[Rfam]
RNA sequence: UCUCAUGAGUUCCGGGUUUCGCGAUAAACGUAACCGUUUCAGAAUUGGUUCGUUGUCGACGAAACCUGCAAUUAUUGGGA
Numbered sequence: 001u002c003u004c005a006u007g008a009g010u011u012c013c014g015g016g017u018u019u020c021g022c023g024a025u026a027a028a029c030g031u032a033a034c035c036g037u038u039u040c041a042g043a044a045u046u047g048g049u050u051c052g053u054u055g056u057c058g059a060c061g062a063a064a065c066c067u068g069c070a071a072u073u074a075u076u077g078g079g080a
Stems, first nucleotide, its partner, number of pairs: 001080005013068009030051001032050004
mir-981 microRNA precursor family: an 80-nucleotide RNA sequence from Ceutorhynchus assimilis.
The match comes from Rfam's covariance-model search (63 bits).
The family has 17 seed sequences and 180 matches in Rfam 15.1.
Rfam links the family to the GO terms RISC complex and miRNA-mediated post-transcriptional gene silencing.
Pairs were carried over by alignment from the consensus structure, which was predicted with RNAalifold.
The literature on the family includes a 2010 paper in BMC Genomics by Legeai et al., "Bioinformatic prediction, deep sequencing of microRNAs and expression analysis during phenotypic plasticity in the pea aphid, Acyrthosiphon pisum".